[Rfam]
RNA sequence: AGGAAAUCUGGCGAUGAGGUUCGCCUUGGUAUUUACCUAAACUGUCUCAUUCGAGACUGAUAACUUCUAUUUUAAG
Numbered sequence: 001a002g003g004a005a006a007u008c009u010g011g012c013g014a015u016g017a018g019g020u021u022c023g024c025c026u027u028g029g030u031a032u033u034u035a036c037c038u039a040a041a042c043u044g045u046c047u048c049a050u051u052c053g054a055g056a057c058u059g060a061u062a063a064c065u066u067c068u069a070u071u072u073u074a075a076g
Base pairs, nucleotide, nucleotide: 010025011024012023013022016067017066018065019064020063021062044057045056046055047054
Dot-bracket structure: .........[[[[..((((((]]]]..................((((......))))....)))))).........